[Rfam]
RNA sequence: GUAAGGGAGCAAUAACCAAAUUCUUGUUCUAUCAAGAGGGCAUUAUUGCUCCUUUACUUUU
Numbered sequence: 001g002u003a004a005g006g007g008a009g010c011a012a013u014a015a016c017c018a019a020a021u022u023c024u025u026g027u028u029c030u031a032u033c034a035a036g037a038g039g040g041c042a043u044u045a046u047u048g049c050u051c052c053u054u055u056a057c058u059u060u061u
Base pairs, nucleotide, nucleotide: 001057002056003055004054005053006052007051008050009049010048011047012046013045014044015043017040022037023036024035025034026033

Rfam assigns this 61-nucleotide RNA sequence from Actinidia chinensis to the family "Plastid-psbA-2 3UTR RNA".
Rfam describes the family as follows. Plastid psbA-2 is a non-coding RNA (ncRNA) present in plastids. It was identified in inverted repeat sequences in the 3 prime untranslate region (3UTR) of photosystem II quinone-binding protein (psbA).
Lineage of the source: Eukaryota > Mesangiospermae > Ericales > Actinidiaceae > Actinidia chinensis.
Clan: Plastid-psbA 3UTR RNA clan.
It scores 64 bits against the family's covariance model.
For this family Rfam cites "Retrograde signaling in plants: A critical review focusing on the GUN pathway and beyond" (Richter et al., Plant Commun, 2023).